[Rfam]
RNA sequence: ACUGUCCUUUUCUUAGGGUUGUGCUACUGUCCAAAGAGUGUGUAGUGAGGGCAGUACUGCUAACGCCUGCACAACAUGCCCCUAUCAACUAGAGCUUGGCUUUACCUUGGUGCGAUUUUGGAAAA
Numbered sequence: 001a002c003u004g005u006c007c008u009u010u011u012c013u014u015a016g017g018g019u020u021g022u023g024c025u026a027c028u029g030u031c032c033a034a035a036g037a038g039u040g041u042g043u044a045g046u047g048a049g050g051g052c053a054g055u056a057c058u059g060c061u062a063a064c065g066c067c068u069g070c071a072c073a074a075c076a077u078g079c080c081c082c083u084a085u086c087a088a089c090u091a092g093a094g095c096u097u098g099g100c101u102u103u104a105c106c107u108u109g110g111u112g113c114g115a116u117u118u119u120g121g122a123a124a125a
Stems, first nucleotide, its partner, number of pairs: 006018004021060003026055007038046002083112005090104006